The record is an 80-nucleotide RNA sequence from Paramesorhizobium deserti, which matches "Fluoride riboswitch aptamer (crcB RNA motif)" in Rfam.
[Rfam]
RNA sequence: AAUCGAUGCGGCAAUGGAUUCUGCCGGGCCGGAAAUGGCCGAACCGCUUCCCCGAUGAAGCUGAUGACUCCUGCUCAUUU
Dot-bracket structure: .........((((..[[[.[[))))....................((((........))))....]].]]].........
Description
It scores 46 bits against the family's covariance model. The organism belongs to Paramesorhizobium, within Bacteria.